[Rfam]
RNA: Nuclear RNase P
Organism: Oncorhynchus sp.
RNA sequence: GGAGGGAAGCUCAUCAGUGGGGUCACAUGUAGGGUGCUUGUCACUCAACCAAUCACCUUGGGGAAGGUCUGAGACAAGAGCCAAUCACUUCCCUAGCAGGGUAUCACCUGAUCUGGGUGAGUGAGUGCACAGAGAAUAUGAGCCAUUGUGAGUUGUCUUUACGGAAGAAACCAGCCAGUACAGCUCUCCAGCACUACUGGUGGAUGUGACCUCACUGGCUUGGAAACACUCAUGGCUGGCAUAUGAGUUUAAUGUGUGAGUUGGAGUACACCUCCAGAACCCAAUUCAGACCACUCUCCGGAAUUCC
Dot-bracket structure: (((((((..(((((...(((((.........(((((.....))))).........)))))........[[[[[.....((((......(.(((.....))).)((((((.....))))))(((((((..............(((........................................................................))).......)))))))))))..................)))))((((((.....)))))).......]]]]].......)))....))))